[Rfam]
FMN riboswitch aptamer (RFN element): a 150-nucleotide RNA sequence from Paenibacillus sp. FSL R7-0331. Taxonomically the source falls in Paenibacillus (Bacteria, Bacillota, Bacilli, Caryophanales).

RNA sequence: CAAGAUUCUCGGGGUAAGGUGAAAUUCCUGACCGGCGGUGAUGUUCAAAGCGAACUAAGCCCGCGACUCAAGCUCCGCUGUUAAGGCGGAAUUGACUGAUCUGGUGACAAUCCAGAGCCGACGGUAAAGUCCGGAUGGGAGAGGAUCAAA
Numbered sequence: 001c002a003a004g005a006u007u008c009u010c011g012g013g014g015u016a017a018g019g020u021g022a023a024a025u026u027c028c029u030g031a032c033c034g035g036c037g038g039u040g041a042u043g044u045u046c047a048a049a050g051c052g053a054a055c056u057a058a059g060c061c062c063g064c065g066a067c068u069c070a071a072g073c074u075c076c077g078c079u080g081u082u083a084a085g086g087c088g089g090a091a092u093u094g095a096c097u098g099a100u101c102u103g104g105u106g107a108c109a110a111u112c113c114a115g116a117g118c119c120g121a122c123g124g125u126a127a128a129g130u131c132c133g134g135a136u137g138g139g140a141g142a143g144g145a146u147c148a149a150a
Base pairs, nucleotide, nucleotide: 004147005146006145007144008143009142010141017029018028019027031130032129033120034119035064036063037062038061059118060117068095069094070093071092100116101115102114103113104112122133123132124131